RNA sequence: ACUGUGGAGUGUUACAUAAACUAUAGUAGAUGCUUUACGGAUCGAGAUAGGACACUAUGAAGCAGUAA
Numbered sequence: 001a002c003u004g005u006g007g008a009g010u011g012u013u014a015c016a017u018a019a020a021c022u023a024u025a026g027u028a029g030a031u032g033c034u035u036u037a038c039g040g041a042u043c044g045a046g047a048u049a050g051g052a053c054a055c056u057a058u059g060a061a062g063c064a065g066u067a068a
Stems, first nucleotide, its partner, number of pairs: 001066005009055005021050003029043003032038001
Rfam assigns this 68-nucleotide sequence to the family "RAGATH-18 RNA". Actinobacteria, Firmicutes, Fusobacteria, Thermotogae (1 example). It is one of the family's seed sequences.